[Rfam]
RNA sequence: AAAGGAUGAAUCCAAAGGGAUCACAUGAUCCAAAUUCAGUAUAUACAGUUUAACCCUAAGUAAAAAAUCCAAGUUGAACUGUGAAAGCACAGAAUUGGGAUCAAUGCGAUCCCUUUGGAUGCCUCCUU
Numbered sequence: 001a002a003a004g005g006a007u008g009a010a011u012c013c014a015a016a017g018g019g020a021u022c023a024c025a026u027g028a029u030c031c032a033a034a035u036u037c038a039g040u041a042u043a044u045a046c047a048g049u050u051u052a053a054c055c056c057u058a059a060g061u062a063a064a065a066a067a068u069c070c071a072a073g074u075u076g077a078a079c080u081g082u083g084a085a086a087g088c089a090c091a092g093a094a095u096u097g098g099g100a101u102c103a104a105u106g107c108g109a110u111c112c113c114u115u116u117g118g119a120u121g122c123c124u125c126c127u128u
Base pairs, nucleotide, nucleotide: 002128003127004126005125006124008122010120011119012118013117014116015115016114017113018112019111020110021109024106025105026103027102028101029100030099031098
The family of this 128-nucleotide RNA from Olea europaea is "mir-393 microRNA precursor family". A search with the family's covariance model found it, with a score of 72 bits. For this family Rfam cites "Role of microRNAs and other sRNAs of plants in their changing environments" (Kruszka et al., J Plant Physiol, 2012). Pairs were carried over by alignment from the consensus structure.